Purine riboswitch aptamer: a 98-nucleotide sequence from Lactobacillus delbrueckii.
RNA sequence: AACUUAACAAAUGUUUCUGCUUAUAUAUCGCUGCGAUACGGGUAGCAGUCUCUACCCGGAGCCGUAAACUCCGGACUAUAGGUAAAGAAGGGCCGGUA
Numbered sequence: 001a002a003c004u005u006a007a008c009a010a011a012u013g014u015u016u017c018u019g020c021u022u023a024u025a026u027a028u029c030g031c032u033g034c035g036a037u038a039c040g041g042g043u044a045g046c047a048g049u050c051u052c053u054a055c056c057c058g059g060a061g062c063c064g065u066a067a068a069c070u071c072c073g074g075a076c077u078a079u080a081g082g083u084a085a086a087g088a089a090g091g092g093c094c095g096g097u098a
Base pairs, nucleotide, nucleotide: 018084019083020082021081022080023079024078025077030046031045032044033043034042056074057073058072059071060070061069
The organism belongs to Lactobacillus delbrueckii subsp. bulgaricus, within Bacteria. A reference for the family is Mandal and Breaker (2004), "Adenine riboswitches and gene activation by disruption of a transcription terminator", Nat Struct Mol Biol. A search with the family's covariance model found it, with a score of 63 bits.